Source information:
Shown here is a 156-nucleotide RNA from Galemys pyrenaicus, a member of the family "U1 spliceosomal RNA". Rfam links the family to the GO terms U1 snRNP, pre-mRNA 5'-splice site binding and mRNA 5'-splice site recognition. The family's RNA type in Rfam is spliceosomal small nuclear RNA.
[Rfam]
RNA sequence: AUAUUUACCUGGUAGAGGAGAUACCAUGAUCAUAAAGGUGUUUUUUUCCAGGUGAGGCUUAUCUAUUGCACUCCAGAUGUGCUGGCUCAGGUGAUUUCCUCAAAUAUGGGAAACUCGACUGCAUAACUGGCGAUAGUGCGUUCACACUCUUCCCCU
Numbered sequence: 001a002u003a004u005u006u007a008c009c010u011g012g013u014a015g016a017g018g019a020g021a022u023a024c025c026a027u028g029a030u031c032a033u034a035a036a037g038g039u040g041u042u043u044u045u046u047u048c049c050a051g052g053u054g055a056g057g058c059u060u061a062u063c064u065a066u067u068g069c070a071c072u073c074c075a076g077a078u079g080u081g082c083u084g085g086c087u088c089a090g091g092u093g094a095u096u097u098c099c100u101c102a103a104a105u106a107u108g109g110g111a112a113a114c115u116c117g118a119c120u121g122c123a124u125a126a127c128u129g130g131c132g133a134u135a136g137u138g139c140g141u142u143c144a145c146a147c148u149c150u151u152c153c154c155c156u
Stems, first nucleotide, its partner, number of pairs: 012122004017047005023042001025040003049090001051088002054086001056083003060079005092117003095113003099109002129155002132152002135150001138147001140145001